[Rfam]
RNA sequence: UCAAAAUUAGGGCAAACUUGCUGAAAAGUAAGGACGCAAAGCUAUGGGUCUAAAGGGUCUAACCUAUGAUUGCCAGGUUGCGAAA
Numbered sequence: 001u002c003a004a005a006a007u008u009a010g011g012g013c014a015a016a017c018u019u020g021c022u023g024a025a026a027a028g029u030a031a032g033g034a035c036g037c038a039a040a041g042c043u044a045u046g047g048g049u050c051u052a053a054a055g056g057g058u059c060u061a062a063c064c065u066a067u068g069a070u071u072g073c074c075a076g077g078u079u080g081c082g083a084a085a
Stems, first nucleotide, its partner, number of pairs: 012037002017032006040079004045075003048070003055064002
The family of this 85-nucleotide RNA sequence from Vallitalea pronyensis is "c-di-GMP-I riboswitch aptamer". Rfam links the family to the GO term cyclic-di-GMP binding. Lineage of the source: Bacteria > Bacillota > Clostridia > Vallitaleaceae > Vallitalea.